MIR159 microRNA precursor family: a 198-nucleotide RNA sequence from Gossypium raimondii. The organism belongs to Gossypium, within Eukaryota. The literature on the family includes a 2004 paper in Plant Cell by Sunkar and Zhu, "Novel and stress-regulated microRNAs and other small RNAs from Arabidopsis". The base pairs follow the family's consensus structure, which was predicted with WAR.
RNA sequence: UAGCGUCCAAAGGAGCUCUCAACACUUCAACACUGAAAGGAGGUGAUGGCACAAUUCCUACGGCUGCUAGCUCAUGGAUAUCCCUGGCUGCGCCACCCUGCGUCAAUUACUGCGCGGGCUAGGGUUUGCAUGACCUGGGAGACGUUAUUUGCCUUCUUUUUCGGUAUUGAGGUGAAGGGAGCUCCUUUUGCUCCUUCU
Numbered sequence: 001u002a003g004c005g006u007c008c009a010a011a012g013g014a015g016c017u018c019u020c021a022a023c024a025c026u027u028c029a030a031c032a033c034u035g036a037a038a039g040g041a042g043g044u045g046a047u048g049g050c051a052c053a054a055u056u057c058c059u060a061c062g063g064c065u066g067c068u069a070g071c072u073c074a075u076g077g078a079u080a081u082c083c084c085u086g087g088c089u090g091c092g093c094c095a096c097c098c099u100g101c102g103u104c105a106a107u108u109a110c111u112g113c114g115c116g117g118g119c120u121a122g123g124g125u126u127u128g129c130a131u132g133a134c135c136u137g138g139g140a141g142a143c144g145u146u147a148u149u150u151g152c153c154u155u156c157u158u159u160u161u162c163g164g165u166a167u168u169g170a171g172g173u174g175a176a177g178g179g180a181g182c183u184c185c186u187u188u189u190g191c192u193c194c195u196u197c198u
Stems, first nucleotide, its partner, number of pairs: 013184008023174007036161001064141002067138003073132004081124001